[Rfam]
A member of the RNA family "HIF-1 alpha IRES" from Equus asinus, 287 nucleotides long. The family's consensus secondary structure was predicted with RNAfold. Lineage of the source: Eukaryota > Opisthokonta > Gnathostomata > Dipnotetrapodomorpha > Equus. A reference for the family is Lang et al. (2002), "Hypoxia-inducible factor-1alpha mRNA contains an internal ribosome entry site that allows efficient translation during normoxia and hypoxia", Mol Biol Cell. Rfam links the family to the GO term ribosome binding.
RNA sequence: CUCGUCCGAGGGGACGCGAGGAUCGCCCUCGCUGCCGCUUCGGCCAGCGCUUCGGGCUGGGCCUUGACAAGCAGCCCGAGGGGAGGCUCUUCUGAGCUGGCUCGGGACCCUUGCGGCUGCCGCCCGCUCCUCCUGCCUCUCGUCUCGCGGAGGGUUUCCCGCCUCGCAUCCCCCUCCUCUGGCCGUGCCUCGCCAUCUCUCCCGCGUGUGCAGGGAGCCAGCGCGUAGGCCGGAGCGAGCCUGGGGGCCGCCGGCCGUGAAGGCGUCGCGGGGACCUAGUCGCCAUG
Dot-bracket structure: (((.......)))..((((((.....)))))).(((.......................)))....................(((.(..........................................(((((............).)))).))))............................((.(((.......(..........)....))).))..........(.(.(((...........)))).).................................